[Rfam]
RNA sequence: GGGGCCGAUCCGGAUUCGACGGGGGUCGCGAAGCAGAGCAGGGCAUGUCGAGCACCAGUUCGCUCGUAAAUCCACUGGAAAAAAUACAAACGCCAACGACGAGCGUUUCGCACUCGCUGCUUAAGCAGUGCCGCUGCACUAGUCUGUCCUUGGGUUAGGUGGAGAGGGGCAACCCUCUAGAAGCUUGCUUCGAACCACUGCAGCGUCAUUCACAAGGAAUCGGUAUUGUCUGGGGUCACACGGACCGUACCUAAAUUACGUGAAUCGCCUUGCACCGGCGCGUUGAUCCGCUAAGUGCAGGGUUAAAUUCAAAUAGAUCGACUACACAUGUAGAACUGCCUGUAGAGGACUUUCGGACGCGGGUUCAAUUCCCGCCGGCUCCACCA
Number, nucleotide and partner (000 for none) at each position: 001g382002g381003g380004g379005c378006c377007g376008a000009u000010c000011c000012g000013g000014a000015u000016u000017c000018g000019a000020c355021g354022g353023g352024g351025g350026u349027c348028g000029c000030g000031a000032a000033g343034c342035a341036g340037a000038g339039c338040a337041g336042g000043g000044c330045a329046u328047g327048u326049c066050g065051a064052g063053c062054a000055c078056c077057a076058g075059u074060u000061c000062g053063c052064u051065c050066g049067u000068a000069a000070a000071u000072c000073c000074a059075c058076u057077g056078g055079a000080a000081a000082a000083a000084a000085u000086a000087c000088a000089a000090a000091c000092g000093c000094c000095a000096a000097c000098g000099a000100c000101g000102a000103g000104c000105g000106u000107u000108u000109c000110g000111c000112a000113c000114u000115c130116g129117c128118u127119g126120c125121u000122u000123a000124a000125g120126c119127a118128g117129u116130g115131c000132c205133g204134c203135u202136g201137c200138a000139c000140u000141a000142g000143u000144c000145u000146g000147u218148c217149c216150u215151u214152g213153g000154g000155u000156u000157a000158g000159g000160u000161g000162g000163a000164g000165a000166g000167g000168g000169g000170c000171a000172a000173c000174c000175c000176u000177c000178u000179a000180g000181a000182a000183g000184c000185u000186u000187g000188c000189u000190u000191c000192g000193a000194a000195c000196c000197a000198c000199u000200g137201c136202a135203g134204c133205g132206u000207c000208a000209u000210u000211c000212a000213c152214a151215a150216g149217g148218a147219a000220u000221c000222g251223g250224u249225a248226u247227u000228g245229u244230c243231u000232g000233g000234g265235g000236u263237c262238a261239c260240a000241c000242g000243g230244a229245c228246c000247g226248u225249a224250c223251c222252u000253a000254a000255a000256u000257u000258a000259c000260g239261u238262g237263a236264a000265u234266c000267g303268c302269c301270u300271u299272g298273c297274a296275c295276c000277g000278g291279c290280g289281c000282g322283u321284u320285g319286a000287u315288c000289c280290g279291c278292u000293a000294a000295g275296u274297g273298c272299a271300g270301g269302g268303u267304u000305a000306a000307a000308u000309u000310c000311a000312a000313a000314u000315a287316g000317a000318u000319c285320g284321a283322c282323u000324a000325c000326a048327c047328a046329u045330g044331u000332a000333g000334a000335a000336c041337u040338g039339c038340c036341u035342g034343u033344a000345g000346a000347g000348g027349a026350c025351u024352u023353u022354c021355g020356g000357a000358c000359g375360c374361g373362g372363g371364u000365u000366c000367a000368a000369u000370u000371c363372c362373c361374g360375c359376c007377g006378g005379c004380u003381c002382c001383a000384c000385c000386a000

Rfam assigns this 386-nucleotide RNA sequence from Corticimicrobacter populi to the family "transfer-messenger RNA". Rfam's curators write: Bacterial tmRNA, also known as 10Sa RNA or SsrA, is named for its dual tRNA and mRNA-like properties. The organism belongs to Corticimicrobacter, within Bacteria. Pairs were carried over by alignment from the consensus structure, which is taken from published work. Rfam links the family to the GO term RNA catabolic process. It scores 211 bits against the family's covariance model. A reference for the family is Williams and Bartel (1996), "Phylogenetic analysis of tmRNA secondary structure", RNA.